Rfam assigns this 64-nucleotide RNA from Panthera tigris to the family "Small nucleolar RNA U2-30". Its family is annotated with RNA processing and nucleolus in the Gene Ontology. The family has 21 seed sequences and 664 matches in Rfam 15.1.
[Rfam]
RNA sequence: CAGCAAUGAUGAAAAGGUUUUACUACUGACUUCUAUGAGUGUUUUUACACUUGAUCUCAGCUCA
Numbered sequence: 001c002a003g004c005a006a007u008g009a010u011g012a013a014a015a016g017g018u019u020u021u022a023c024u025a026c027u028g029a030c031u032u033c034u035a036u037g038a039g040u041g042u043u044u045u046u047a048c049a050c051u052u053g054a055u056c057u058c059a060g061c062u063c064a
Stems, first nucleotide, its partner, number of pairs: 002062003013034001015032005